[Rfam]
RNA sequence: ACUGGCCUGGUGGGGGCCAUAGAAGGAGCGUUCACGUCGCGGUUCCUGUCAGGUAUCUGUUUACCUGAGAAUCCUUCU
Numbered sequence: 001a002c003u004g005g006c007c008u009g010g011u012g013g014g015g016g017c018c019a020u021a022g023a024a025g026g027a028g029c030g031u032u033c034a035c036g037u038c039g040c041g042g043u044u045c046c047u048g049u050c051a052g053g054u055a056u057c058u059g060u061u062u063a064c065c066u067g068a069g070a071a072u073c074c075u076u077c078u
Base pairs, nucleotide, nucleotide: 013046014045015044016043017042018041021078022077023076024075025074026073027072028040029039030038050067051066052065053064054063055062
Source information
Mammalian CPEB3 ribozyme: a 78-nucleotide sequence from Laticauda laticaudata. Taxonomically the source falls in Laticauda (Eukaryota, Eumetazoa, Chordata, Elapidae). The family has 14 seed sequences and 5,706 matches in Rfam 15.1. Pairs were carried over by alignment from the consensus structure, which is taken from published work.